[Rfam]
RNA sequence: UGUCUGUAGCUGGUUGAAAUUGGGCCAAAUUAGAAAAAGGUCAAGCAUUUGGUCCCCUUCAACCAGCUGUAGUUG
Numbered sequence: 001u002g003u004c005u006g007u008a009g010c011u012g013g014u015u016g017a018a019a020u021u022g023g024g025c026c027a028a029a030u031u032a033g034a035a036a037a038a039g040g041u042c043a044a045g046c047a048u049u050u051g052g053u054c055c056c057c058u059u060c061a062a063c064c065a066g067c068u069g070u071a072g073u074u075g
Stems, first nucleotide, its partner, number of pairs: 004072003008068011022054002025052006

Record summary: The family of this 75-nucleotide RNA sequence from Lottia gigantea is "mir-133 microRNA precursor family". The sequence is in the family's curated seed alignment. Rfam describes the family as follows. mir-133 was first experimentally characterised in mouse and homologues have since been discovered in several other species. On this family, see Lagos-Quintana et al., Curr Biol 2002: "Identification of tissue-specific microRNAs from mouse".